[Rfam]
RNA sequence: AACUUCUGUUUAAAGCGCCCUGCUAAAACUGCGGGAGCCGACCCUUACAGGUUCAGCUCCUGUGGCUGUGUAAGCAUGGGUACAUGGGGAAGGAGAGCAAAUGCACAGUAUUGGAAAUGAGACUGGGAGGGACCUCUUUCUGAAUGUCUGUUUUCCUUUGUCUCAAGAUCCUGUGUUACACAC
Numbered sequence: 001a002a003c004u005u006c007u008g009u010u011u012a013a014a015g016c017g018c019c020c021u022g023c024u025a026a027a028a029c030u031g032c033g034g035g036a037g038c039c040g041a042c043c044c045u046u047a048c049a050g051g052u053u054c055a056g057c058u059c060c061u062g063u064g065g066c067u068g069u070g071u072a073a074g075c076a077u078g079g080g081u082a083c084a085u086g087g088g089g090a091a092g093g094a095g096a097g098c099a100a101a102u103g104c105a106c107a108g109u110a111u112u113g114g115a116a117a118u119g120a121g122a123c124u125g126g127g128a129g130g131g132a133c134c135u136c137u138u139u140c141u142g143a144a145u146g147u148c149u150g151u152u153u154u155c156c157u158u159u160g161u162c163u164c165a166a167g168a169u170c171c172u173g174u175g176u177u178a179c180a181c182a183c
Base pairs, nucleotide, nucleotide: 018080019079021076022075023074024073028069029068031066034060035059037057038056040054041053043051044050045049103176104175105174106173107172108171110169125154127152130149131148132147